[Rfam]
Overview
The family of this 133-nucleotide RNA from Paenibacillus contaminans is "Ribosomal protein L10 leader". This family is a putative r-protein leader autoregulatory structure found in B. subtilis and other low-GC Gram-positive bacteria. It is located in the 5' untranslated regions of mRNAs encoding ribosomal proteins L10 and L12 (rplJ-rplL). A Rho-independent transcription terminator structure that is probably involved in regulation is included at the 3' end. NCBI's taxonomy places the organism under Bacteria, Bacillati, Bacilli, Caryophanales, Paenibacillus.
RNA sequence: UAAAAAUGAAUAUGCUUGCCGUAGACAGUAGGUGCUCGCAAGAGCUUAAUGUCCUACCGAGGUGUGUGAUAUAGAUUCGGGAACGGAAUCGUCAUGCCUUCGCUUUGUCUGCGAAGGCUUUUCUAUUUGUCGC
Numbered sequence: 001u002a003a004a005a006a007u008g009a010a011u012a013u014g015c016u017u018g019c020c021g022u023a024g025a026c027a028g029u030a031g032g033u034g035c036u037c038g039c040a041a042g043a044g045c046u047u048a049a050u051g052u053c054c055u056a057c058c059g060a061g062g063u064g065u066g067u068g069a070u071a072u073a074g075a076u077u078c079g080g081g082a083a084c085g086g087a088a089u090c091g092u093c094a095u096g097c098c099u100u101c102g103c104u105u106u107g108u109c110u111g112c113g114a115a116g117g118c119u120u121u122u123c124u125a126u127u128u129g130u131c132g133c
Stems, first nucleotide, its partner, number of pairs: 028057005034045003096118008